RNA sequence: GGCCGGUGAUGUGACGGCAUGUAUUACCUGAAGGCCGAGCUGAUGCAUAACUCACUUAGCUCUAGAAUUACUCUGAGGCCUA
Numbered sequence: 001g002g003c004c005g006g007u008g009a010u011g012u013g014a015c016g017g018c019a020u021g022u023a024u025u026a027c028c029u030g031a032a033g034g035c036c037g038a039g040c041u042g043a044u045g046c047a048u049a050a051c052u053c054a055c056u057u058a059g060c061u062c063u064a065g066a067a068u069u070a071c072u073c074u075g076a077g078g079c080c081u082a
Stems, first nucleotide, its partner, number of pairs: 001080004